RNA: Bacteroidetes FopS (family of paralogous sRNAs)
Organism: Parabacteroides gordonii
RNA sequence: GUGUUUUUCAUGGUAUUAGAUUUAAGGUUAACAAUGAAGAUUGGCUGUCCGUGAUGGAUAGCCUUUUUUAUUU
Numbered sequence: 001g002u003g004u005u006u007u008u009c010a011u012g013g014u015a016u017u018a019g020a021u022u023u024a025a026g027g028u029u030a031a032c033a034a035u036g037a038a039g040a041u042u043g044g045c046u047g048u049c050c051g052u053g054a055u056g057g058a059u060a061g062c063c064u065u066u067u068u069u070a071u072u073u
Stems, first nucleotide, its partner, number of pairs: 043063007